[Rfam]
RNA sequence: CAAGACGAUCCAGGGCGCGUUGUUUUCUUUUCACAUAAUUCAGGUCAAUUAACCUUGAAUAAUUGAGGGAUGACCUCAUUUAAUCUCCAGUAGCAAAUUUGACCUGUUAUGGGAGGAGUUAUGCGUCUGGAUCGUCUUAC
Numbered sequence: 001c002a003a004g005a006c007g008a009u010c011c012a013g014g015g016c017g018c019g020u021u022g023u024u025u026u027c028u029u030u031u032c033a034c035a036u037a038a039u040u041c042a043g044g045u046c047a048a049u050u051a052a053c054c055u056u057g058a059a060u061a062a063u064u065g066a067g068g069g070a071u072g073a074c075c076u077c078a079u080u081u082a083a084u085c086u087c088c089a090g091u092a093g094c095a096a097a098u099u100u101g102a103c104c105u106g107u108u109a110u111g112g113g114a115g116g117a118g119u120u121a122u123g124c125g126u127c128u129g130g131a132u133c134g135u136c137u138u139a140c
Stems, first nucleotide, its partner, number of pairs: 002138011014127006022119002024044003031038001053068006069080004084116005090110003
Overview
The record is a 140-nucleotide sequence from Atlantibacter hermannii, which matches "Yersinia sRNA 155(RyfD)" in Rfam. For this family Rfam cites "Temperature-responsive in vitro RNA structurome of Yersinia pseudotuberculosis" (Righetti et al., Proc Natl Acad Sci U S A, 2016). The match comes from Rfam's covariance-model search (118 bits). The sRNA was identified by and is confirmed to have a stable secondary structure by using genome-wide structure probing at different temperatures. The function is unknown. Rfam classes the family as a small RNA.